[Rfam]
RNA sequence: GUCCAGAAAACAGUGAUGUGAGAGUUUCCAAGCACAUAUCUGAUUCUUGCAUGUUGAAAUCCAUCUAUCUCUGAGUUUUCUGGAU
Number, nucleotide and partner (000 for none) at each position: 001g085002u084003c083004c082005a081006g080007a000008a078009a077010a076011c075012a000013g000014u000015g000016a000017u000018g000019u000020g000021a000022g000023a000024g000025u000026u000027u000028c000029c000030a000031a000032g000033c000034a000035c000036a000037u000038a000039u000040c000041u000042g000043a000044u000045u000046c000047u000048u000049g000050c000051a000052u000053g000054u000055u000056g000057a000058a000059a000060u000061c000062c000063a000064u000065c000066u000067a000068u000069c000070u000071c000072u000073g000074a000075g011076u010077u009078u008079u000080c006081u005082g004083g003084a002085u001
Small nucleolar RNA SNORD121A: an 85-nucleotide sequence from Phascolarctos cinereus. Pairs were carried over by alignment from the consensus structure, which was predicted with WAR. Rfam 15.1 lists 881 matches to the family in 444 species. It is annotated as a C/D-box small nucleolar RNA. Taxonomically the source falls in Phascolarctos (Eukaryota, Bilateria, Craniata, Theria).